[Rfam]
RNA sequence: AGAUGAGGUAGAGGUCGCAUUGUUUAUAAAGUAUAGUGGAGUAUGAGGAUACUAGGAAACUAUAUGGUGGAAACAUUGCCGAAAUGUAUAUUUUCCCUCAAAAAUAUAUGUUGGGCUAGCAAUCAAUAAUUGUUAGACUGUCUCAGUGUCAAAACUGAGUUGCGCUAUUUUUGUC
Numbered sequence: 001a002g003a004u005g006a007g008g009u010a011g012a013g014g015u016c017g018c019a020u021u022g023u024u025u026a027u028a029a030a031g032u033a034u035a036g037u038g039g040a041g042u043a044u045g046a047g048g049a050u051a052c053u054a055g056g057a058a059a060c061u062a063u064a065u066g067g068u069g070g071a072a073a074c075a076u077u078g079c080c081g082a083a084a085u086g087u088a089u090a091u092u093u094u095c096c097c098u099c100a101a102a103a104a105u106a107u108a109u110g111u112u113g114g115g116c117u118a119g120c121a122a123u124c125a126a127u128a129a130u131u132g133u134u135a136g137a138c139u140g141u142c143u144c145a146g147u148g149u150c151a152a153a154a155c156u157g158a159g160u161u162g163c164g165c166u167a168u169u170u171u172u173g174u175c
Stems, first nucleotide, its partner, number of pairs: 006170006017079003021075005031065007083112012113139002116136008142159006
Rfam assigns this 175-nucleotide RNA from Vagococcus entomophilus to the family "Lysine riboswitch aptamer". A search with the family's covariance model found it, with a score of 98 bits. The family's consensus secondary structure is taken from published work.